The family of this 127-nucleotide sequence from Thiomonas bhubaneswarensis is "SAH (S-adenosyl-L-homocysteine) riboswitch aptamer".
Gene Ontology terms of the family: S-adenosylhomocysteine metabolic process and regulation of gene expression.
The literature on the family includes a 2008 paper in Mol Cell by Wang et al., "Riboswitches that sense S-adenosylhomocysteine and activate genes involved in coenzyme recycling".
It scores 51 bits against the family's covariance model.

[Rfam]
RNA sequence: UUGCCCGAGGAGCGUUGCAACGCACGGCGCGCGAGCCCUUCGCCGCCCUGUGCCAGGCUCGGGACUUUGAUCGCAGGCCGCUUCUUUCUCCUUGCUGGCGGCUUUCCUUCAACGGCGCUCACCCAAC
Numbered sequence: 001u002u003g004c005c006c007g008a009g010g011a012g013c014g015u016u017g018c019a020a021c022g023c024a025c026g027g028c029g030c031g032c033g034a035g036c037c038c039u040u041c042g043c044c045g046c047c048c049u050g051u052g053c054c055a056g057g058c059u060c061g062g063g064a065c066u067u068u069g070a071u072c073g074c075a076g077g078c079c080g081c082u083u084c085u086u087u088c089u090c091c092u093u094g095c096u097g098g099c100g101g102c103u104u105u106c107c108u109u110c111a112a113c114g115g116c117g118c119u120c121a122c123c124c125a126a127c
Base pairs, nucleotide, nucleotide: 004063005062006061007060008059021052022051023050024049026047027046028045029044
Dot-bracket structure: ...(((((............((((.((((..............)))).))))......)))))................................................................